[Rfam]
RNA: Small nucleolar RNA snR60/Z15/Z230/Z193/J17
RNA sequence: AGUUGAAAAAUGAUGAUAUCAAUAGUUCAAAUGAGCUUUUCAAGCGAUGCAAUAGAUUUUCGCCCCUAUCUGAUUUCAAAC
Number, nucleotide and partner (000 for none) at each position: 001a000002g000003u000004u078005g077006a076007a075008a074009a000010a000011u000012g000013a000014u000015g000016a000017u000018a000019u000020c000021a000022a000023u000024a000025g000026u000027u000028c000029a000030a000031a000032u000033g000034a000035g000036c000037u000038u000039u000040u000041c000042a000043a000044g000045c000046g000047a000048u000049g000050c000051a000052a000053u000054a000055g000056a000057u000058u000059u000060u000061c000062g000063c000064c000065c000066c000067u000068a000069u000070c000071u000072g000073a000074u008075u007076u006077c005078a004079a000080a000081c000